[Rfam]
RNA: Archaeal large subunit ribosomal RNA, nucleotides 872 to 1317
Organism: Candidatus Altarchaeales archaeon WOR_SM1_SCG
RNA sequence: CCUUCCGAAAUGGCCCGCAGUCCAGUCUGACCGGAGAUGGAUUAUGGGGUAGAGCACUGAUUGAGUAGCCCGGGGAAGAAAUUCCUCACUAUUCUGUCAAACUCCAAACCCAUAAUCAUCGUAGAAGGUUGGAAACGGGGCCGGGGGGUAAGCUCCCGGUCCGAAAGGGAAACAACCCUGAUUGUGGUUAAGGCCCCCAAGUAUUGACUAAGUGUAAGCAAAGGCGUCUUAGGGCUAAGACAGCGAGAAGGUUGGCUUAGAAGCAGCCAUCCUCUAAGGAGUUCGUAACAGAUCACUCGCCGAGUUCUAGGGCCCUUAAAAUAUACGGGGCUCAAGUCAAUCGCCGAUACCACAAUGCAUAAUGGUAAUUAUGAUCAAGUAGGAAGGUGUAAAGCGAGGAAAGAAGCUUUUUCGUAAGAAUUGGUGGACCUCGCGUUAAUAAGAAU
Numbered sequence: 001c002c003u004u005c006c007g008a009a010a011u012g013g014c015c016c017g018c019a020g021u022c023c024a025g026u027c028u029g030a031c032c033g034g035a036g037a038u039g040g041a042u043u044a045u046g047g048g049g050u051a052g053a054g055c056a057c058u059g060a061u062u063g064a065g066u067a068g069c070c071c072g073g074g075g076a077a078g079a080a081a082u083u084c085c086u087c088a089c090u091a092u093u094c095u096g097u098c099a100a101a102c103u104c105c106a107a108a109c110c111c112a113u114a115a116u117c118a119u120c121g122u123a124g125a126a127g128g129u130u131g132g133a134a135a136c137g138g139g140g141c142c143g144g145g146g147g148g149u150a151a152g153c154u155c156c157c158g159g160u161c162c163g164a165a166a167g168g169g170a171a172a173c174a175a176c177c178c179u180g181a182u183u184g185u186g187g188u189u190a191a192g193g194c195c196c197c198c199a200a201g202u203a204u205u206g207a208c209u210a211a212g213u214g215u216a217a218g219c220a221a222a223g224g225c226g227u228c229u230u231a232g233g234g235c236u237a238a239g240a241c242a243g244c245g246a247g248a249a250g251g252u253u254g255g256c257u258u259a260g261a262a263g264c265a266g267c268c269a270u271c272c273u274c275u276a277a278g279g280a281g282u283u284c285g286u287a288a289c290a291g292a293u294c295a296c297u298c299g300c301c302g303a304g305u306u307c308u309a310g311g312g313c314c315c316u317u318a319a320a321a322u323a324u325a326c327g328g329g330g331c332u333c334a335a336g337u338c339a340a341u342c343g344c345c346g347a348u349a350c351c352a353c354a355a356u357g358c359a360u361a362a363u364g365g366u367a368a369u370u371a372u373g374a375u376c377a378a379g380u381a382g383g384a385a386g387g388u389g390u391a392a393a394g395c396g397a398g399g400a401a402a403g404a405a406g407c408u409u410u411u412u413c414g415u416a417a418g419a420a421u422u423g424g425u426g427g428a429c430c431u432c433g434c435g436u437u438a439a440u441a442a443g444a445a446u
Stems, first nucleotide, its partner, number of pairs: 001387006011024003015020001026134001027132006036120003040117008052105001053103002059098003063094006072087006138162009167178003182355007192345003201342001203341006222316003226313010243300005249273003254268003274278001279294001283292002356377002358373005388441001390438003394434006406425003411420003